[Rfam]
RNA: Flavo-1 RNA
RNA sequence: UUUUAGCCCUGAUGGAAGCGAAAAUCCUGUUUCGUUUUUUGGAACGAAACAGAUUGUAGCGACAGCAGGAAAAUGG
Number, nucleotide and partner (000 for none) at each position: 001u000002u000003u000004u000005a000006g000007c000008c000009c068010u067011g066012a000013u064014g063015g000016a000017a000018g060019c059020g000021a000022a000023a055024a054025u053026c052027c000028u000029g050030u049031u048032u047033c046034g045035u044036u043037u000038u000039u000040u000041g000042g000043a036044a035045c034046g033047a032048a031049a030050c029051a000052g026053a025054u024055u023056g000057u000058a000059g019060c018061g000062a000063c014064a013065g000066c011067a010068g009069g000070a000071a000072a000073a000074u000075g000076g000